Bacterial RNase P class A: a 397-nucleotide RNA from Chitinasiproducens palmae. Rfam classes the family as a ribozyme. Rfam links the family to the GO terms dimeric ribonuclease P complex, ribonuclease P activity and tRNA processing. The match comes from Rfam's covariance-model search (288 bits). Taxonomically the source falls in Chitinasiproducens (Bacteria, Pseudomonadota, Betaproteobacteria, Burkholderiaceae).

RNA sequence: AGAGUUGGUCAGACAGUCGCCGCCGCGUUUCGCGGGGGAGGAAAGUCCGGACUCCACAGGGCAGGGUGAUGGCUAACGGCCAUCCGUGGCAACACGAGGAACAGGGCAACAGAGAACAGACCGCCGAUGGCCCGCUGGCGCAAGCCGGCGGGAUCAGGUAAGGGUGAAACGGUGCGGUAAGAGCGCACCGCGGGUCGCGGCGACGCGCCUGGCACGGUAACCUCCACCCGGAGCAAUUCCAAAUAGGCAGACACGCCAUCCUCGCGAUGGCAGGGCGGGGCCCCCGUCGCGUCUGCGGGUAGGAAGCUCGAGCAUGCCAGCAAUGGUACGCCUAGACGAAUGACUGUCACGUGCGGCAACGCAUGCACAGAAUCCGGCUUAUCGACCGGCUCCACGC
Numbered sequence: 001a002g003a004g005u006u007g008g009u010c011a012g013a014c015a016g017u018c019g020c021c022g023c024c025g026c027g028u029u030u031c032g033c034g035g036g037g038g039a040g041g042a043a044a045g046u047c048c049g050g051a052c053u054c055c056a057c058a059g060g061g062c063a064g065g066g067u068g069a070u071g072g073c074u075a076a077c078g079g080c081c082a083u084c085c086g087u088g089g090c091a092a093c094a095c096g097a098g099g100a101a102c103a104g105g106g107c108a109a110c111a112g113a114g115a116a117c118a119g120a121c122c123g124c125c126g127a128u129g130g131c132c133c134g135c136u137g138g139c140g141c142a143a144g145c146c147g148g149c150g151g152g153a154u155c156a157g158g159u160a161a162g163g164g165u166g167a168a169a170c171g172g173u174g175c176g177g178u179a180a181g182a183g184c185g186c187a188c189c190g191c192g193g194g195u196c197g198c199g200g201c202g203a204c205g206c207g208c209c210u211g212g213c214a215c216g217g218u219a220a221c222c223u224c225c226a227c228c229c230g231g232a233g234c235a236a237u238u239c240c241a242a243a244u245a246g247g248c249a250g251a252c253a254c255g256c257c258a259u260c261c262u263c264g265c266g267a268u269g270g271c272a273g274g275g276c277g278g279g280g281c282c283c284c285c286g287u288c289g290c291g292u293c294u295g296c297g298g299g300u301a302g303g304a305a306g307c308u309c310g311a312g313c314a315u316g317c318c319a320g321c322a323a324u325g326g327u328a329c330g331c332c333u334a335g336a337c338g339a340a341u342g343a344c345u346g347u348c349a350c351g352u353g354c355g356g357c358a359a360c361g362c363a364u365g366c367a368c369a370g371a372a373u374c375c376g377g378c379u380u381a382u383c384g385a386c387c388g389g390c391u392c393c394a395c396g397c
Stems, first nucleotide, its partner, number of pairs: 002392009011382001012348007020038002023035005043380003047377005052233004059283004064229005069083005084098001085096004099224002104222002106218002121163002123159003128156003132152002171189006190213001191211004196207004237305004247296006274288005312331002315328005